Shown here is a 137-nucleotide RNA sequence from Drosophila erecta, a member of the family "Small nucleolar RNA psi18S-841/snoR66". Rfam's curators write: psi18S-841 is a member of the H/ACA class of snoRNA. This family is responsible for guiding the modification of uridine 841 in Drosophila 18S rRNA to pseudouridine. Rfam 15.1 lists 108 matches to the family in 46 species. NCBI's taxonomy places the organism under Eukaryota, Panarthropoda, Muscomorpha, Acalyptratae, Sophophora. Gene Ontology terms of the family: RNA processing and nucleolus. The family's consensus secondary structure was predicted with RNAfold.
[Rfam]
RNA sequence: GGCAAAUGCACUCUGUGUCACAUUAAAACUAGCUUCGUGUGAUGACAAUUUGUUAGUUUGCCAGAUCAAGGAGAUGCGUCUUAUCCAUGUGGUCAUGUUCUUCCAAUUUGUUCACAUUGAAUACGCCCCUAACAUGA
Numbered sequence: 001g002g003c004a005a006a007u008g009c010a011c012u013c014u015g016u017g018u019c020a021c022a023u024u025a026a027a028a029c030u031a032g033c034u035u036c037g038u039g040u041g042a043u044g045a046c047a048a049u050u051u052g053u054u055a056g057u058u059u060g061c062c063a064g065a066u067c068a069a070g071g072a073g074a075u076g077c078g079u080c081u082u083a084u085c086c087a088u089g090u091g092g093u094c095a096u097g098u099u100c101u102u103c104c105a106a107u108u109u110g111u112u113c114a115c116a117u118u119g120a121a122u123a124c125g126c127c128c129c130u131a132a133c134a135u136g137a
Stems, first nucleotide, its partner, number of pairs: 002061006010053002014047003017043007067136002070130002073128001077125002084120002087117006094110001